[Rfam]
RNA sequence: CUGUAUGUUUUUUAAGCAAUCCAAGGGCCGUACGCCCCCAGAUGCCAGAGGCGUUGAAAAAAAGUUCGCUACCUUGCGCCGCCCGAGUUUACUUACUACAAGUUAUGAGUAGUAUGUACGCCGGCUUAUUUCCCAGUUGGGAAA
Dot-bracket structure: ...........................................((..((((.((........)......).))))..)).(((...((.(((.((((((.(....)..)))))).))).)).)))...((((((....))))))
RNA: Pseudomonas sRNA P14
Organism: Pseudomonas sp. 21C1